A member of the RNA family "Y RNA-like" from Rubricoccus marinus, 125 nucleotides long.

[Rfam]
RNA sequence: GCGGCGAAUGCCGACGAGACUACAUCUGACACAGGAGGCCGCGGGUUCAAAUCCCGCCCGUCCCCGGACGGUAGCUCAGCCCGGCAGAGCACCUGCUUGUCUCGUCACCUCCUCGUCGCCGCGAU
Number, nucleotide and partner (000 for none) at each position: 001g000002c121003g120004g119005c118006g117007a116008a000009u000010g000011c000012c000013g106014a105015c104016g103017a102018g101019a100020c000021u000022a000023c095024a000025u000026c000027u000028g000029a000030c000031a000032c000033a000034g093035g092036a000037g000038g000039c000040c000041g057042c056043g055044g054045g053046u000047u000048c084049a000050a000051a000052u000053c045054c044055c043056g042057c041058c071059c070060g069061u068062c067063c000064c000065c000066g000067g062068a061069c060070g059071g058072u000073a000074g090075c089076u088077c087078a000079g000080c000081c000082c000083g000084g048085c000086a000087g077088a076089g075090c074091a000092c035093c034094u000095g023096c000097u000098u000099g000100u019101c018102u017103c016104g015105u014106c013107a000108c000109c000110u000111c000112c000113u000114c000115g000116u007117c006118g005119c004120c003121g002122c000123g000124a000125u000

The family has 6 seed sequences and 124 matches in Rfam 15.1. Rfam classes the family as a small RNA. The literature on the family includes a 2018 paper in Structure by Wang et al., "Structural Basis for tRNA Mimicry by a Bacterial Y RNA". Rfam's curators write: In Deinococcus radiodurans Rsr is tethered via Y RNA to the exoribonuclease PNPase and channels single-stranded RNA into the PNPase cavity. It scores 73 bits against the family's covariance model.